[Rfam]
RNA sequence: CGGGCCGUGAACUCCCACUUCUUGGCCUGGCCGGACAUCACCCGGCCGCCGAAGGUGUCCCCGUCGGCCAGCAGCCCGAUCACGGCCUCUUCGCCGUACGGACCCUCGCCGAUCUUCUCGACCUUGCCGUGCGCGAUCAGGAACACCUGGUCGGCCUUGCGGCCCGCCUGCACGAUGAGAUCGCCCGGCGCGUACUCCUUCUGCACGAACUUGUCGGCCAGCGCGCCGAGCACGUCGGCGUCGGAAAAGCCGCGCAGCAGGGGCAGUUCACCCAGUUCGGCGGGGACCACCUGGACCUUGGAGCCGGUCUUCACGAAGGUCACGCGGCCGUCGCCGACGGUGUAGGAGAGACGGCGGUUGACCCGGUAGGUUGCGCCGGGCACGUUCACCCAGGGCAGCAUGCGGGUCGCCCAGCGGGAGGUGAUGCCCUGCAUCUGGGGUUCGGACUUGGUGGUGGUGGCGAGAUUGCGCGCCGCCGCGGUGCUGAGGCUCUGCUGCUCCUGCUGC
Numbered sequence: 001c002g003g004g005c006c007g008u009g010a011a012c013u014c015c016c017a018c019u020u021c022u023u024g025g026c027c028u029g030g031c032c033g034g035a036c037a038u039c040a041c042c043c044g045g046c047c048g049c050c051g052a053a054g055g056u057g058u059c060c061c062c063g064u065c066g067g068c069c070a071g072c073a074g075c076c077c078g079a080u081c082a083c084g085g086c087c088u089c090u091u092c093g094c095c096g097u098a099c100g101g102a103c104c105c106u107c108g109c110c111g112a113u114c115u116u117c118u119c120g121a122c123c124u125u126g127c128c129g130u131g132c133g134c135g136a137u138c139a140g141g142a143a144c145a146c147c148u149g150g151u152c153g154g155c156c157u158u159g160c161g162g163c164c165c166g167c168c169u170g171c172a173c174g175a176u177g178a179g180a181u182c183g184c185c186c187g188g189c190g191c192g193u194a195c196u197c198c199u200u201c202u203g204c205a206c207g208a209a210c211u212u213g214u215c216g217g218c219c220a221g222c223g224c225g226c227c228g229a230g231c232a233c234g235u236c237g238g239c240g241u242c243g244g245a246a247a248a249g250c251c252g253c254g255c256a257g258c259a260g261g262g263g264c265a266g267u268u269c270a271c272c273c274a275g276u277u278c279g280g281c282g283g284g285g286a287c288c289a290c291c292u293g294g295a296c297c298u299u300g301g302a303g304c305c306g307g308u309c310u311u312c313a314c315g316a317a318g319g320u321c322a323c324g325c326g327g328c329c330g331u332c333g334c335c336g337a338c339g340g341u342g343u344a345g346g347a348g349a350g351a352c353g354g355c356g357g358u359u360g361a362c363c364c365g366g367u368a369g370g371u372u373g374c375g376c377c378g379g380g381c382a383c384g385u386u387c388a389c390c391c392a393g394g395g396c397a398g399c400a401u402g403c404g405g406g407u408c409g410c411c412c413a414g415c416g417g418g419a420g421g422u423g424a425u426g427c428c429c430u431g432c433a434u435c436u437g438g439g440g441u442u443c444g445g446a447c448u449u450g451g452u453g454g455u456g457g458u459g460g461c462g463a464g465a466u467u468g469c470g471c472g473c474c475g476c477c478g479c480g481g482u483g484c485u486g487a488g489g490c491u492c493u494g495c496u497g498c499u500c501c502u503g504c505u506g507c
Stems, first nucleotide, its partner, number of pairs: 007389006016380001019327001022324001023322005028316001037311001040308003045305001047303001049301004054233001058229002062225003065111004075101001077100002082097005118221001120219001122217002129210002131206001133204003140197001143196001150191001154189003159184002165174002234296003240290002243288002250283003253279002256277003260271001262269001329342004352378005360372004391431007399423003403418001406415001437476001439474002443470002446467001448464002451461002477506002480501002484497001487496002